[Rfam]
RNA sequence: UCUGCAAAGGGCAAACUUAACGAAAGUUAAGGGCGCAAAGCCACGGGUCUAAGGAGAAAUGCUAUGACAGCCGGGUUGCCAGGU
Numbered sequence: 001u002c003u004g005c006a007a008a009g010g011g012c013a014a015a016c017u018u019a020a021c022g023a024a025a026g027u028u029a030a031g032g033g034c035g036c037a038a039a040g041c042c043a044c045g046g047g048u049c050u051a052a053g054g055a056g057a058a059a060u061g062c063u064a065u066g067a068c069a070g071c072c073g074g075g076u077u078g079c080c081a082g083g084u
Stems, first nucleotide, its partner, number of pairs: 003081002011036002016031006034070001039077004044073003047068003